[Rfam]
RNA: Plastid-ccsA-ndhD-1 3UTR RNA
Organism: Glycine soja
RNA sequence: AAAUAUUUGAGAACCCUUUGAAUCAAAUAUUGUAAUAAUGAUUUAAGGGGUUCUCAAAA
Number, nucleotide and partner (000 for none) at each position: 001a000002a000003a000004u000005a000006u000007u057008u056009g055010a054011g053012a052013a051014c050015c049016c048017u047018u046019u045020g044021a043022a042023u041024c040025a036026a000027a000028u000029a000030u000031u000032g000033u000034a000035a000036u025037a000038a000039u000040g024041a023042u022043u021044u020045a019046a018047g017048g016049g015050g014051u013052u012053c011054u010055c009056a008057a007058a000059a000